The record is a 130-nucleotide RNA from Aeromonas hydrophila, which matches "RtT RNA" in Rfam. This family represents a bacterial cis-regulatory element known as RtT RNA. The exact function of RtT is unknown although it is thought that it may be involved in changing the cellular response in relation to amino acid starvation. It is annotated as a cis-regulatory element. For this family Rfam cites "A novel RNA product of the tyrT operon of Escherichia coli" (Bosl and Kersten, Nucleic Acids Res, 1991).

[Rfam]
RNA sequence: CGUUCAUGUCGAAGAGAGAGGAUGAGAACCCUCACCGGGUUUGAGCAGAGAAGCUUGCAGUGAUGAACGGCCGCAGGCCGCCCCGAAGGAGUGAGCCACGCAGUGGCGAAUGAUCCUUCCUUCAUCGCCA
Numbered sequence: 001c002g003u004u005c006a007u008g009u010c011g012a013a014g015a016g017a018g019a020g021g022a023u024g025a026g027a028a029c030c031c032u033c034a035c036c037g038g039g040u041u042u043g044a045g046c047a048g049a050g051a052a053g054c055u056u057g058c059a060g061u062g063a064u065g066a067a068c069g070g071c072c073g074c075a076g077g078c079c080g081c082c083c084c085g086a087a088g089g090a091g092u093g094a095g096c097c098a099c100g101c102a103g104u105g106g107c108g109a110a111u112g113a114u115c116c117u118u119c120c121u122u123c124a125u126c127g128c129c130a
Stems, first nucleotide, its partner, number of pairs: 015121002018118004023113001033093002040087004047061001068080004